[Rfam]
Nucleotides: 118
Stems, first nucleotide, its partner, number of pairs: 003112002013102004019055004025049005033042003061086011087095002
Number, partner (000 for none) and nucleotide at each position: 001000u002000u003112a004111a005000u006000a007000u008000u009000u010000u011000g012000u013102c014101u015100c016099c017000g018000a019055g020054c021053c022052g023000c024000u025049a026048g027047a028046u029045c030000u031000a032000a033042g034041g035040c036000u037000g038000c039000a040035g041034c042033u043000a044000a045029g046028a047027u048026c049025u050000c051000c052022c053021g054020g055019c056000c057000g058000u059000u060000a061086g062085g063084g064083u065082u066081u067080a068079c069078u070077g071076a072000g073000a074000a075000a076071u077070u078069g079068g080067u081066a082065a083064g084063c085062c086061u087095c088094c089000c090000c091000u092000g093000u094088g095087g096000a097000a098000a099016g100015g101014a102013g103000u104000a105000c106000a107000g108000u109000a110000a111004u112003u113000a114000a115000c116000c117000u118000u
The record is a 118-nucleotide RNA sequence from Desulforamulus aquiferis, which matches "Molybdenum/Tungsten riboswitch aptamer (Moco RNA motif)" in Rfam. The family's consensus secondary structure is taken from published work. Lineage of the source: Bacteria > Bacillati > Bacillota > Clostridia > Desulforamulus.